Background
The record is an 88-nucleotide sequence from Granulicatella elegans, which matches "RNA anti-toxin A" in Rfam. It is annotated as an antitoxin RNA.
RNA sequence: UAAUGAAGAUGCAAAAAGAGCCGAGCAGUAACUCGACUCUAAUGUAGCCCGUUAAAAAGACGGUGGCUUGUUUACAGUGUAUAUAACA
Numbered sequence: 001u002a003a004u005g006a007a008g009a010u011g012c013a014a015a016a017a018g019a020g021c022c023g024a025g026c027a028g029u030a031a032c033u034c035g036a037c038u039c040u041a042a043u044g045u046a047g048c049c050c051g052u053u054a055a056a057a058a059g060a061c062g063g064u065g066g067c068u069u070g071u072u073u074a075c076a077g078u079g080u081a082u083a084u085a086a087c088a
Stems, first nucleotide, its partner, number of pairs: 022035004049063005
Dot-bracket structure: .....................((((......)))).............(((((.....))))).........................